[Rfam]
RNA sequence: CCCAGGGCGUUGCCCUGGGCUGACAUAUCUCAGGCCUUCGGCCUG
Numbered sequence: 001c002c003c004a005g006g007g008c009g010u011u012g013c014c015c016u017g018g019g020c021u022g023a024c025a026u027a028u029c030u031c032a033g034g035c036c037u038u039c040g041g042c043c044u045g
Stems, first nucleotide, its partner, number of pairs: 001019008032044005
RNA: Acido-Lenti-1 RNA
Organism: Roseimicrobium sp. ORNL1